[Rfam]
RNA sequence: UAAGCCCUGAGGCCUGGAAGGCUAGGGGGGGAGGGGGGAGGGCUGGGGUCUCUCUUCAGACUCAGGCCCACACUUGAACA
Numbered sequence: 001u002a003a004g005c006c007c008u009g010a011g012g013c014c015u016g017g018a019a020g021g022c023u024a025g026g027g028g029g030g031g032a033g034g035g036g037g038g039a040g041g042g043c044u045g046g047g048g049u050c051u052c053u054c055u056u057c058a059g060a061c062u063c064a065g066g067c068c069c070a071c072a073c074u075u076g077a078a079c080a
Stems, first nucleotide, its partner, number of pairs: 003044005011023004
The family of this 80-nucleotide RNA sequence from Chrysochloris asiatica is "GRIK4 3 prime UTR element".
Taxonomically the source falls in Chrysochloris (Eukaryota, Dipnotetrapodomorpha, Tetrapoda, Afrotheria).
The base pairs follow the family's consensus structure, which was predicted with CMfinder.